[Rfam]
RNA sequence: AACACGCUCCUUAGAUCCACUUCUGGAGGGUUCUCCUGUGCUGGUGCUGUCGUCGCUCUCUGAGUGCUGCAACUCCAGCCUGGAGGCCCUCAACAGCUUUCUGGCUGUACAGUUGGAGGUGCUUGAGUCAUUGGUGUGUGAGAGCAGUCUACCUGCCCCGCCCAGCCCCACUGUUGCUCUGGCAACCCUCAGUCCUACUGGGGGGGGAUUCUACUAGAGCAGCUAGGCUGGGGGCGGACAAC
Numbered sequence: 001a002a003c004a005c006g007c008u009c010c011u012u013a014g015a016u017c018c019a020c021u022u023c024u025g026g027a028g029g030g031u032u033c034u035c036c037u038g039u040g041c042u043g044g045u046g047c048u049g050u051c052g053u054c055g056c057u058c059u060c061u062g063a064g065u066g067c068u069g070c071a072a073c074u075c076c077a078g079c080c081u082g083g084a085g086g087c088c089c090u091c092a093a094c095a096g097c098u099u100u101c102u103g104g105c106u107g108u109a110c111a112g113u114u115g116g117a118g119g120u121g122c123u124u125g126a127g128u129c130a131u132u133g134g135u136g137u138g139u140g141a142g143a144g145c146a147g148u149c150u151a152c153c154u155g156c157c158c159c160g161c162c163c164a165g166c167c168c169c170a171c172u173g174u175u176g177c178u179c180u181g182g183c184a185a186c187c188c189u190c191a192g193u194c195c196u197a198c199u200g201g202g203g204g205g206g207g208a209u210u211c212u213a214c215u216a217g218a219g220c221a222g223c224u225a226g227g228c229u230g231g232g233g234g235c236g237g238a239c240a241a242c
Stems, first nucleotide, its partner, number of pairs: 002139007010127005018121008026091005034084003040079004046073001048071002052067001054066004093108006153237005162231001164229004175221008189213001192211001194206003